Shown here is a 130-nucleotide RNA from Rhinopithecus roxellana, a member of the family "Small nucleolar RNA SNORA20". By type it is an H/ACA-box small nucleolar RNA. Rfam describes the family as follows. ACA20 is a member of the H/ACA class of snoRNA that guide the sites of modification of uridines to pseudouridines. The family has 17 seed sequences and 437 matches in Rfam 15.1. Pairs were carried over by alignment from the consensus structure, which was predicted with ILM. A search with the family's covariance model found it, with a score of 83 bits. The family is grouped with related families in Rfam's "SNORA20 clan".
RNA sequence: CUUCCCACUUGUUUGCUGGUAUAGUCUUACAAUGAUAUGAAUAGUUUUGCUCUUGGGAAAAAUAAUAUUGGGGCAUUGUAAAUUGACAUGAAGUAACUAUUUUCAUAUUUUCUGCAUAGACUAGUUGUUG
Numbered sequence: 001c002u003u004c005c006c007a008c009u010u011g012u013u014u015g016c017u018g019g020u021a022u023a024g025u026c027u028u029a030c031a032a033u034g035a036u037a038u039g040a041a042u043a044g045u046u047u048u049g050c051u052c053u054u055g056g057g058a059a060a061a062a063u064a065a066u067a068u069u070g071g072g073g074c075a076u077u078g079u080a081a082a083u084u085g086a087c088a089u090g091a092a093g094u095a096a097c098u099a100u101u102u103u104c105a106u107a108u109u110u111u112c113u114g115c116a117u118a119g120a121c122u123a124g125u126u127g128u129u130g
Base pairs, nucleotide, nucleotide: 003058004057005056006055007054015045016044017043018042020040022037023036025035026034068124069123070122071121075117077116078115079114080113085109086108088106089105090103091102092101093100094099